Shown here is a 250-nucleotide RNA sequence from Aeribacillus pallidus, a member of the family "BsrG". Rfam's curators write: bsrE, bsrG and bsrH pair through intermolecular interactions with antisense sRNAs. They form type I toxin/antitoxin system that includes an mRNA encoding for a short, toxic peptide (bsrE, bsrG and bsrH) and an antitoxin that is comprised of an antisense RNA. bsrG encodes a 39-amino-acid toxin, and the 180 nucleotide antisense sRNA called SR4 acts as the antitoxin (they overlap by 123 nucleotides). SR4 interaction with the 3'UTR of bsrG RNA promotes bsrG degradation and inhibits its translation. BsrG interferes with cell envelope biosynthesis, causes membrane invaginations and delocalisation of the cell wall synthesis and initiates autolysis. bsrE RNA encodes 30 amino-acid toxin peptide. For this family Rfam cites "One antitoxin--two functions: SR4 controls toxin mRNA decay and translation" (Jahn and Brantl, Nucleic Acids Res, 2013). Gene Ontology terms of the family: toxin activity and autolysis. It is annotated as a small RNA.

RNA sequence: GCAAUAGAACGGUAGACUCAAGGGUGGUUGGCAUUUACCCCGUACAGAAAGGGGGUGUGCCGAUGACAGUAUUCGAAGCGUUAAUGUUUGCAAUCAGUUUUUCAAGCCUUAUAAUUACAAUGCUGUCAAAUCCGCAAAAAAAAUAAUCCACCCUUGAGCUGAUAGCAGUGGUGGAUUAUUUUUUACCUCCUGCCUGAUCCCCUUGAAGGGAACCGUCUGUUGCAGGGCCAAGGGUGUCGCAGCACCUUUG
Numbered sequence: 001g002c003a004a005u006a007g008a009a010c011g012g013u014a015g016a017c018u019c020a021a022g023g024g025u026g027g028u029u030g031g032c033a034u035u036u037a038c039c040c041c042g043u044a045c046a047g048a049a050a051g052g053g054g055g056u057g058u059g060c061c062g063a064u065g066a067c068a069g070u071a072u073u074c075g076a077a078g079c080g081u082u083a084a085u086g087u088u089u090g091c092a093a094u095c096a097g098u099u100u101u102u103c104a105a106g107c108c109u110u111a112u113a114a115u116u117a118c119a120a121u122g123c124u125g126u127c128a129a130a131u132c133c134g135c136a137a138a139a140a141a142a143a144u145a146a147u148c149c150a151c152c153c154u155u156g157a158g159c160u161g162a163u164a165g166c167a168g169u170g171g172u173g174g175a176u177u178a179u180u181u182u183u184u185a186c187c188u189c190c191u192g193c194c195u196g197a198u199c200c201c202c203u204u205g206a207a208g209g210g211a212a213c214c215g216u217c218u219g220u221u222g223c224a225g226g227g228c229c230a231a232g233g234g235u236g237u238c239g240c241a242g243c244a245c246c247u248u249u250g
Stems, first nucleotide, its partner, number of pairs: 001223005007217002011213001013192003017158008026148004037056005065127007080091001102119001105116001161180003198211004229250009